[Rfam]
RNA sequence: UUCUGUUGUCCUUCAUUCCACCGGAGUCUGUCUCGUACCUAAACCAGAUUUCAGUGGAGUGAAGCACAAGAGACA
Numbered sequence: 001u002u003c004u005g006u007u008g009u010c011c012u013u014c015a016u017u018c019c020a021c022c023g024g025a026g027u028c029u030g031u032c033u034c035g036u037a038c039c040u041a042a043a044c045c046a047g048a049u050u051u052c053a054g055u056g057g058a059g060u061g062a063a064g065c066a067c068a069a070g071a072g073a074c075a
Stems, first nucleotide, its partner, number of pairs: 011064006019056003023052004028047003
A member of the RNA family "mir-205 microRNA precursor family" from Menura novaehollandiae, 75 nucleotides long. Pairs were carried over by alignment from the consensus structure, which was predicted with RNAalifold. It scores 89 bits against the family's covariance model. Taxonomically the source falls in Menura (Eukaryota, Teleostomi, Dipnotetrapodomorpha, Sauria). The literature on the family includes a 2008 paper in Genome Res by Murchison et al., "Conservation of small RNA pathways in platypus". Rfam 15.1 lists 1,154 matches to the family in 646 species.